[Rfam]
RNA sequence: AUGUUAUCGAGAAAGGUGGAGAGAUUAGACUCUGAGAAACCUUGGCAACCCUUCGGAAACGAAGAAGGUGCUAAAUUCUAUCCGCUCUGGCGGAAAAGAUAACCC
Numbered sequence: 001a002u003g004u005u006a007u008c009g010a011g012a013a014a015g016g017u018g019g020a021g022a023g024a025u026u027a028g029a030c031u032c033u034g035a036g037a038a039a040c041c042u043u044g045g046c047a048a049c050c051c052u053u054c055g056g057a058a059a060c061g062a063a064g065a066a067g068g069u070g071c072u073a074a075a076u077u078c079u080a081u082c083c084g085c086u087c088u089g090g091c092g093g094a095a096a097a098g099a100u101a102a103c104c105c
Base pairs, nucleotide, nucleotide: 003103004102005101006100007099008098013043014042015041016040017039021032022031023030026080027079028078029077044072045071046070047069049068050067051064052063053062054061076097081094082093083092084091085090
Shown here is a 105-nucleotide RNA sequence from Chryseobacterium sp. SC28, a member of the family "SAM riboswitch aptamer (S box leader)".
The match comes from Rfam's covariance-model search (78 bits).